[Rfam]
RNA: Plastid-psbN 5UTR RNA
Organism: Spinacia oleracea
RNA sequence: UACCAAUAUUAUAAAAAAGAGUAGUUCCCUAUCAAAGAGCUACUUUACCAUAUUCCGAAUUC
Numbered sequence: 001u002a003c004c005a006a007u008a009u010u011a012u013a014a015a016a017a018a019g020a021g022u023a024g025u026u027c028c029c030u031a032u033c034a035a036a037g038a039g040c041u042a043c044u045u046u047a048c049c050a051u052a053u054u055c056c057g058a059a060u061u062c
Stems, first nucleotide, its partner, number of pairs: 018046010